[Rfam]
RNA sequence: UGUCUCCUCCACUCUCCUCGUGAUGUGGAUUCAGGCCCAGGCUCGAAAGUGCCUGGGCCUUUUUUU
Dot-bracket structure: .......(((((((.......)).)))))....((((((((..........)))))))).......

This 66-nucleotide sequence from Thauera sp. 27 belongs to the Rfam family "Betaproteobacteria toxic small RNA".
Overexpression in amino aid rich medium attenuates growth, suggesting role in repressing amino acid intake and metabolism.
Pairs were carried over by alignment from the consensus structure, which was predicted with WAR.
A reference for the family is Kimelman et al. (2012), "A vast collection of microbial genes that are toxic to bacteria", Genome Res.